[Rfam]
RNA sequence: AAUGCGAUGAUGAUUCAAUACAUGGUUUUGGCAGUGGUUACCCCUUGUGGUCACCGUGAGCCGUCAAACCUGAAAACGACUUCUCUUUCCACUGAGCAUU
Numbered sequence: 001a002a003u004g005c006g007a008u009g010a011u012g013a014u015u016c017a018a019u020a021c022a023u024g025g026u027u028u029u030g031g032c033a034g035u036g037g038u039u040a041c042c043c044c045u046u047g048u049g050g051u052c053a054c055c056g057u058g059a060g061c062c063g064u065c066a067a068a069c070c071u072g073a074a075a076a077c078g079a080c081u082u083c084u085c086u087u088u089c090c091a092c093u094g095a096g097c098a099u100u
Base pairs, nucleotide, nucleotide: 001100002099003098004097005096
RNA: Small nucleolar RNA Z152/R70/R12/
Organism: Zea mays